[Rfam]
RNA: Alphaproteobacterial ar14
RNA sequence: AUUUAUCGACGAAGCACUCCUCCUCCCAGCUUCAUCGAGGGAUCGGCGACCCUCCUCCUCCCAGUUGCCGAUCAGGAUCGAAGGCCCGGCGCACCUCCUCCCGCGCCGGGCCUUCUCU
Numbered sequence: 001a002u003u004u005a006u007c008g009a010c011g012a013a014g015c016a017c018u019c020c021u022c023c024u025c026c027c028a029g030c031u032u033c034a035u036c037g038a039g040g041g042a043u044c045g046g047c048g049a050c051c052c053u054c055c056u057c058c059u060c061c062c063a064g065u066u067g068c069c070g071a072u073c074a075g076g077a078u079c080g081a082a083g084g085c086c087c088g089g090c091g092c093a094c095c096u097c098c099u100c101c102c103g104c105g106c107c108g109g110g111c112c113u114u115c116u117c118u
Base pairs, nucleotide, nucleotide: 007037008036009035011033012032013031014030015029041073042072043071044070045069046068047067048066049065050064082113083112084111085110086109087108088107089106090105091104092103